The record is a 50-nucleotide RNA sequence from Nereida ignava, which matches "SAM/SAH riboswitch aptamer" in Rfam.

RNA sequence: AUGCCUCACCAACGGCUUCCUGACGGUGUGGGCGGUAUUCAACUGGAGCA
Numbered sequence: 001a002u003g004c005c006u007c008a009c010c011a012a013c014g015g016c017u018u019c020c021u022g023a024c025g026g027u028g029u030g031g032g033c034g035g036u037a038u039u040c041a042a043c044u045g046g047a048g049c050a
Stems, first nucleotide, its partner, number of pairs: 004031002007028004013022002015049003019046002
Record summary: The match comes from Rfam's covariance-model search (41 bits). The base pairs follow the family's consensus structure, which is taken from published work. Lineage of the source: Bacteria > Pseudomonadota > Alphaproteobacteria > Roseobacteraceae > Nereida.